[Rfam]
RNA sequence: AGAGUCCUACGAAGAAGAUGUAGCCCAUCACUUCGGCCUCCAGCGGAGGGGCGACUGCGGUAACAACGUCGUCUUGAGCGUCCGUGCGGAGGGUCAAGCAGGCUGUGCUAUUGAGCUCCGAAAUCACCACUCUCGCGUGCCGACCAUGUCCUGACAAGGGGAAGGCCACAUCGCGGGCGUCGCUAUGGGCGAGACGCCAGCGGACGCGGCGGAGUCUGAGAACC
Numbered sequence: 001a002g003a004g005u006c007c008u009a010c011g012a013a014g015a016a017g018a019u020g021u022a023g024c025c026c027a028u029c030a031c032u033u034c035g036g037c038c039u040c041c042a043g044c045g046g047a048g049g050g051g052c053g054a055c056u057g058c059g060g061u062a063a064c065a066a067c068g069u070c071g072u073c074u075u076g077a078g079c080g081u082c083c084g085u086g087c088g089g090a091g092g093g094u095c096a097a098g099c100a101g102g103c104u105g106u107g108c109u110a111u112u113g114a115g116c117u118c119c120g121a122a123a124u125c126a127c128c129a130c131u132c133u134c135g136c137g138u139g140c141c142g143a144c145c146a147u148g149u150c151c152u153g154a155c156a157a158g159g160g161g162a163a164g165g166c167c168a169c170a171u172c173g174c175g176g177g178c179g180u181c182g183c184u185a186u187g188g189g190c191g192a193g194a195c196g197c198c199a200g201c202g203g204a205c206g207c208g209g210c211g212g213a214g215u216c217u218g219a220g221a222a223c224c
Base pairs, nucleotide, nucleotide: 010035011034012033013032014031017029018028019027020026021192023190024189037092038091039090040089043087044086045083046082048079049075050074051073054069055068059064112218113216115215116214117213118212119211120210133209134208135207136206137205138204139166140165141164144160145159147157171203172202173201174200176198177197178196179195180194181193
About this RNA: The record is a 224-nucleotide sequence, which matches "Group II catalytic intron D1-D4-6" in Rfam. Pairs were carried over by alignment from the consensus structure. Gene Ontology term of the family: Group II intron splicing. For this family Rfam cites "The ins and outs of group II introns" (Bonen and Vogel, Trends Genet, 2001).